[Rfam]
RNA: Small nucleolar RNA snoR104
Organism: Oryza sativa
RNA sequence: AGGUAGGAUUCAAAAGAGAAGAUGCCUACCUGAUACAAUCUUCCUAGAGUAAAGUUGUCAUUUCCUGCUUGUGGUAUUGUUAGCAAGUCCUGCAAGUCUCAAAUGUCAAGACAGCU
Numbered sequence: 001a002g003g004u005a006g007g008a009u010u011c012a013a014a015a016g017a018g019a020a021g022a023u024g025c026c027u028a029c030c031u032g033a034u035a036c037a038a039u040c041u042u043c044c045u046a047g048a049g050u051a052a053a054g055u056u057g058u059c060a061u062u063u064c065c066u067g068c069u070u071g072u073g074g075u076a077u078u079g080u081u082a083g084c085a086a087g088u089c090c091u092g093c094a095a096g097u098c099u100c101a102a103a104u105g106u107c108a109a110g111a112c113a114g115c116u
Stems, first nucleotide, its partner, number of pairs: 001031003005027001006025001008023003056111001058109001067097008076088003